[Rfam]
RNA sequence: UAUUUCUGGUUGGGGUGCCGUCAGUUCGGCGGCUGAGAUUAAACCCAUUGAACCUGACCCGGAUAAUUCCGGCGUAGGGAACCGCUGCAGCAUUAAA
Numbered sequence: 001u002a003u004u005u006c007u008g009g010u011u012g013g014g015g016u017g018c019c020g021u022c023a024g025u026u027c028g029g030c031g032g033c034u035g036a037g038a039u040u041a042a043a044c045c046c047a048u049u050g051a052a053c054c055u056g057a058c059c060c061g062g063a064u065a066a067u068u069c070c071g072g073c074g075u076a077g078g079g080a081a082c083c084g085c086u087g088c089a090g091c092a093u094u095a096a097a
Base pairs, nucleotide, nucleotide: 007084008083009082010081011047012046013045014044016041017033018032019031020030021029053078054077055076056075059072060071061070062069
Overview:
TPP riboswitch aptamer (THI element): a 97-nucleotide sequence from a Lentisphaerota bacterium. Lineage of the source: Bacteria > Pseudomonadati > Lentisphaerota. The family has 115 seed sequences and 16,130 matches in Rfam 15.1. Pairs were carried over by alignment from the consensus structure, which is taken from published work. A search with the family's covariance model found it, with a score of 74 bits.